[Rfam]
RNA sequence: UGAGAAAAGCAGAAGUGAGAACUUCUCGCCUUGCGACUUAGGUUGUCUGGCCCAACAUGUCAAAUCCUUAAAGGGAUAUUAUGUGUGCGGGCUUGUAUAUCAAGUCCGCUUUGUUUUUCUCUA
Numbered sequence: 001u002g003a004g005a006a007a008a009g010c011a012g013a014a015g016u017g018a019g020a021a022c023u024u025c026u027c028g029c030c031u032u033g034c035g036a037c038u039u040a041g042g043u044u045g046u047c048u049g050g051c052c053c054a055a056c057a058u059g060u061c062a063a064a065u066c067c068u069u070a071a072a073g074g075g076a077u078a079u080u081a082u083g084u085g086u087g088c089g090g091g092c093u094u095g096u097a098u099a100u101c102a103a104g105u106c107c108g109c110u111u112u113g114u115u116u117u118u119c120u121c122u123a
Base pairs, nucleotide, nucleotide: 011026012025013024014023015022016021028051029050030049033046034045035044036043037042087109088108089107090106091105092104093103094102095101

Ribosomal protein L20 leader: a 123-nucleotide RNA sequence from Streptococcus thermophilus. The sequence is in the family's curated seed alignment. By type it is a cis-regulatory leader. Pairs were carried over by alignment from the consensus structure, which was predicted with CMfinder. Rfam describes the family as follows. This family is a putative r-protein leader autoregulatory structure found in B. subtilis and other low-GC Gram-positive bacteria. It is located in the 5' untranslated regions of mRNAs encoding initiation factor 3 followed by ribosomal proteins L35 and L20 (infC-rpmI-rplT). A Rho-independent transcription terminator structure that is probably involved in regulation is included at the 3' end. Rfam links the family to the GO term regulation of gene expression.